[Rfam]
RNA sequence: UACUCUGAAAAGCUGAUUUAGCACCGACGGGGCAAUUUCUAUAGAAUAUAGAAGGAAACUCUCAGGUUAAUGAACAGAGCA
Numbered sequence: 001u002a003c004u005c006u007g008a009a010a011a012g013c014u015g016a017u018u019u020a021g022c023a024c025c026g027a028c029g030g031g032g033c034a035a036u037u038u039c040u041a042u043a044g045a046a047u048a049u050a051g052a053a054g055g056a057a058a059c060u061c062u063c064a065g066g067u068u069a070a071u072g073a074a075c076a077g078a079g080c081a
Stems, first nucleotide, its partner, number of pairs: 001081001003079005013021003023067003026063002030061003036054008

Shown here is an 81-nucleotide sequence from Alkaliphilus oremlandii, a member of the family "Glycine riboswitch aptamer".
Lineage of the source: Bacteria > Bacillati > Peptostreptococcales > Alkaliphilus > Alkaliphilus oremlandii.